[Rfam]
RNA sequence: UGCUCCGGUGCGAGGAGCGCUCUCUCCAAAGGACCACUACGGCGGGAAAAGGACCCGACCAAACCCCACCCCUCCCGCCCGUCGAGCAAACUCACUCCCGCGAGUGAAUAUGCCCAACUCGACUGGAUUCGUGACGGGUUGCCUGCCUUACGCUCAGCGCAACACGGCACGCCCACGCAGCACCACAGCCGCAGACAUGCGACGGCCCCCGCCGGGACGGCAAUCCCAGUGCGAGGGCCUGACCACCGAGGAAGAUAGAGGCUUCCCG
Number, nucleotide and partner (000 for none) at each position: 001u000002g000003c000004u000005c000006c000007g247008g246009u245010g244011c000012g000013a000014g000015g000016a000017g078018c077019g076020c000021u000022c000023u000024c000025u000026c000027c000028a000029a000030a000031g000032g000033a000034c000035c000036a000037c000038u000039a000040c000041g000042g000043c000044g000045g000046g000047a000048a000049a000050a000051g000052g000053a000054c000055c000056c000057g000058a000059c000060c000061a000062a000063a000064c000065c000066c000067c000068a000069c000070c000071c000072c000073u000074c000075c000076c019077g018078c017079c000080c000081g000082u000083c000084g000085a000086g000087c000088a000089a000090a000091c000092u107093c106094a105095c104096u103097c102098c000099c000100g000101c000102g097103a096104g095105u094106g093107a092108a000109u000110a000111u000112g000113c000114c000115c000116a000117a000118c000119u000120c000121g000122a000123c157124u156125g155126g154127a000128u000129u000130c000131g000132u000133g000134a000135c000136g000137g000138g000139u000140u000141g000142c000143c000144u000145g000146c000147c000148u000149u000150a000151c000152g000153c000154u126155c125156a124157g123158c000159g000160c000161a000162a000163c000164a000165c000166g000167g000168c000169a000170c000171g000172c000173c000174c000175a000176c000177g000178c000179a000180g000181c000182a000183c000184c000185a000186c000187a000188g000189c000190c000191g000192c000193a000194g000195a000196c000197a000198u000199g000200c000201g000202a000203c000204g239205g238206c237207c236208c235209c000210c233211g232212c231213c000214g227215g226216g225217a224218c000219g000220g000221c000222a000223a000224u217225c216226c215227c214228a000229g000230u000231g212232c211233g210234a000235g208236g207237g206238c205239c204240u000241g000242a000243c000244c010245a009246c008247c007248g000249a000250g266251g265252a264253a263254g262255a000256u000257a000258g000259a000260g000261g000262c254263u253264u252265c251266c250267c000268g000